[Rfam]
RNA sequence: GACUUGGUCGGAAACCAAGUCCUCGAAAAGGAG
Numbered sequence: 001g002a003c004u005u006g007g008u009c010g011g012a013a014a015c016c017a018a019g020u021c022c023u024c025g026a027a028a029a030g031g032a033g
Base pairs, nucleotide, nucleotide: 001021002020003019004018005017006016007015008014